Shown here is a 148-nucleotide RNA sequence from Aquibacillus salsiterrae, a member of the family "FMN riboswitch aptamer (RFN element)". The base pairs follow the family's consensus structure, which is taken from published work. Taxonomically the source falls in Aquibacillus (Bacteria, Bacillati, Caryophanales, Bacillaceae).
[Rfam]
RNA sequence: UUCUAUCUUCGGGGCAGGGUGAAAUUCCCGACCGACGGUGAUGAAUGCAUUAGCAUUCUUAGUCCGUGACCCGCAUCGUAUGCUACGUUGUGGUUGACCUGGUGAAACUCCGGGACCGACAGUAAAGUCUGGAUGGGAGAAGAUAACU
Numbered sequence: 001u002u003c004u005a006u007c008u009u010c011g012g013g014g015c016a017g018g019g020u021g022a023a024a025u026u027c028c029c030g031a032c033c034g035a036c037g038g039u040g041a042u043g044a045a046u047g048c049a050u051u052a053g054c055a056u057u058c059u060u061a062g063u064c065c066g067u068g069a070c071c072c073g074c075a076u077c078g079u080a081u082g083c084u085a086c087g088u089u090g091u092g093g094u095u096g097a098c099c100u101g102g103u104g105a106a107a108c109u110c111c112g113g114g115a116c117c118g119a120c121a122g123u124a125a126a127g128u129c130u131g132g133a134u135g136g137g138a139g140a141a142g143a144u145a146a147c148u
Base pairs, nucleotide, nucleotide: 004145005144006143007142008141009140010139017029018028019027031128032127033118034117035067036066037065038064062116063115071093072092098114099113100112101111102110120131121130122129